Shown here is a 46-nucleotide RNA sequence from Bifidobacterium psychraerophilum, a member of the family "L31-Actinobacteria ribosomal protein leader". The family's RNA type in Rfam is cis-regulatory leader. Its Rfam clan is "Ribosomal Protein L31 Leader clan".
[Rfam]
RNA sequence: GAGGUUCCGGUUCACGUCUGUUACAAGGACAAGGCGACCCGGUUCC
Numbered sequence: 001g002a003g004g005u006u007c008c009g010g011u012u013c014a015c016g017u018c019u020g021u022u023a024c025a026a027g028g029a030c031a032a033g034g035c036g037a038c039c040c041g042g043u044u045c046c
Stems, first nucleotide, its partner, number of pairs: 003046002007042004015036004019031004